[Rfam]
RNA sequence: UGUUACGUGGUUCGUGAACCUCCCACGCUAAAAAACUAAGGAAAA
Number, nucleotide and partner (000 for none) at each position: 001u000002g000003u000004u000005a000006c027007g026008u025009g024010g023011u000012u000013c000014g000015u038016g037017a000018a000019c000020c000021u000022c000023c010024c009025a008026c007027g006028c000029u000030a000031a000032a000033a000034a000035a000036c000037u016038a015039a000040g000041g000042a000043a000044a000045a000
Shown here is a 45-nucleotide sequence from Gilliamella sp. Occ3-1, a member of the family "PreQ1 (pre queuosine) riboswitch aptamer". The organism belongs to Gilliamella, within Bacteria. The base pairs follow the family's consensus structure. The match comes from Rfam's covariance-model search (53 bits). About the family: This family is a bacterial riboswitch that binds to the metabolite preQ1, an intermediate in the biosynthesis of the modified nucleoside queuosine from GTP. One example of this riboswitch is located in the leader of the Bacillus subtilis ykvJKLM (queCDEF) operon which encodes four genes necessary for queuosine production. On this family, see Reader et al., J Biol Chem 2004: "Identification of four genes necessary for biosynthesis of the modified nucleoside queuosine". Rfam 15.1 lists 873 matches to the family in 692 species.